[Rfam]
RNA sequence: CAAUGAGGUAGAGGUCGCGGGACUUAUUAACCCUAUCGAGUGGAGAGACACGAAGAAGUAGGACUAGGAAGUUUCGCCGAAAUGUGCAGAAUUCUCUUUGUUCUGUAUGUUGGGACGCAAGUCAAUAACUUGCGGACUGUCUUAGUAGUAAUACUAAGUUGCGCUAUGUUUUGU
Numbered sequence: 001c002a003a004u005g006a007g008g009u010a011g012a013g014g015u016c017g018c019g020g021g022a023c024u025u026a027u028u029a030a031c032c033c034u035a036u037c038g039a040g041u042g043g044a045g046a047g048a049c050a051c052g053a054a055g056a057a058g059u060a061g062g063a064c065u066a067g068g069a070a071g072u073u074u075c076g077c078c079g080a081a082a083u084g085u086g087c088a089g090a091a092u093u094c095u096c097u098u099u100g101u102u103c104u105g106u107a108u109g110u111u112g113g114g115a116c117g118c119a120a121g122u123c124a125a126u127a128a129c130u131u132g133c134g135g136a137c138u139g140u141c142u143u144a145g146u147a148g149u150a151a152u153a154c155u156a157a158g159u160u161g162c163g164c165u166a167u168g169u170u171u172u173g174u
Base pairs, nucleotide, nucleotide: 006169008167009166010165011164017077018076019075020074021073022072023071024070025069032062033061034060035059036058081111082110083109084108085107086106087105088104089103090102091101092100112138113137116134117133118132119131120130121129122128141158142157143156144155145154146153